[Rfam]
RNA sequence: GGAGUUGACUGGGUAAUCGCUGCUUCAUUGAUGUCCUUUGGGAGACUGAUGGAGGGGAGGAACGUCCGGGCUCCAUAGAGCAGGGUGCCAGGUAACGCCUGGGGAGCGCGAGCUCACGACAAGUGCAGCAGAGAGAAAACCGCCGAUGGCUUAAUCUUCUUUUAUUCUUCGGAGUAGGGAAGUAAGCACAGGUAAGGGUGAAAGGGUGCGGUAAGAGCGCACCGUGCGUCUGGCAACAGUGCGUAGCAAGGUAAACUCCACCCGGAGCAAGAUCAAAUAGGCCCUCACAUUGCGUUGCUCGCGUAUGGGGGCGGGUAGAUUGCUUGAGCCUGUGAGCGAUUGCAGGCCUAGACGAAUGGUUACCGCCGCGCAAGCGGAGACAGAACCCGGCGUAUGUGUCAACUCCACCU
Numbered sequence: 001g002g003a004g005u006u007g008a009c010u011g012g013g014u015a016a017u018c019g020c021u022g023c024u025u026c027a028u029u030g031a032u033g034u035c036c037u038u039u040g041g042g043a044g045a046c047u048g049a050u051g052g053a054g055g056g057g058a059g060g061a062a063c064g065u066c067c068g069g070g071c072u073c074c075a076u077a078g079a080g081c082a083g084g085g086u087g088c089c090a091g092g093u094a095a096c097g098c099c100u101g102g103g104g105a106g107c108g109c110g111a112g113c114u115c116a117c118g119a120c121a122a123g124u125g126c127a128g129c130a131g132a133g134a135g136a137a138a139a140c141c142g143c144c145g146a147u148g149g150c151u152u153a154a155u156c157u158u159c160u161u162u163u164a165u166u167c168u169u170c171g172g173a174g175u176a177g178g179g180a181a182g183u184a185a186g187c188a189c190a191g192g193u194a195a196g197g198g199u200g201a202a203a204g205g206g207u208g209c210g211g212u213a214a215g216a217g218c219g220c221a222c223c224g225u226g227c228g229u230c231u232g233g234c235a236a237c238a239g240u241g242c243g244u245a246g247c248a249a250g251g252u253a254a255a256c257u258c259c260a261c262c263c264g265g266a267g268c269a270a271g272a273u274c275a276a277a278u279a280g281g282c283c284c285u286c287a288c289a290u291u292g293c294g295u296u297g298c299u300c301g302c303g304u305a306u307g308g309g310g311g312c313g314g315g316u317a318g319a320u321u322g323c324u325u326g327a328g329c330c331u332g333u334g335a336g337c338g339a340u341u342g343c344a345g346g347c348c349u350a351g352a353c354g355a356a357u358g359g360u361u362a363c364c365g366c367c368g369c370g371c372a373a374g375c376g377g378a379g380a381c382a383g384a385a386c387c388c389g390g391c392g393u394a395u396g397u398g399u400c401a402a403c404u405c406c407a408c409c410u
Stems, first nucleotide, its partner, number of pairs: 001406009011395001012364007020057002023054008062393003066390005071267004078300004083263005088102005103117001104115004118258002123256002125252002140197002142193003147188002205223006224247001225245005230239003271321004281312006291305005328347008
A member of the RNA family "Bacterial RNase P class A" from Vibrio tapetis, 410 nucleotides long.
The organism belongs to Vibrio tapetis, within Bacteria.
Ribonuclease P (RNase P) is a ubiquitous endoribonuclease, found in archaea, bacteria and eukarya as well as chloroplasts and mitochondria. Its best characterised activity is the generation of mature 5'-ends of tRNAs by cleaving the 5'-leader elements of precursor-tRNAs. Cellular RNase Ps are ribonucleoproteins. RNA from bacterial RNase Ps retains its catalytic activity in the absence of the protein subunit, i.e. it is a ribozyme. Isolated eukaryotic and archaeal RNase P RNA has not been shown to retain its catalytic function, but is still essential for the catalytic activity of the holoenzyme. Although the archaeal and eukaryotic holoenzyme s have a much greater protein content than the bacterial ones, the RNA cores from all the three lineages are homologous -- helices corresponding to P1, P2, P3, P4, and P10/11 are common to all cellular RNase P RNAs. Yet, there is considerable sequence variation, particularly among the eukaryotic RNAs. Identified in Yersinia as Ysr151/RnpB.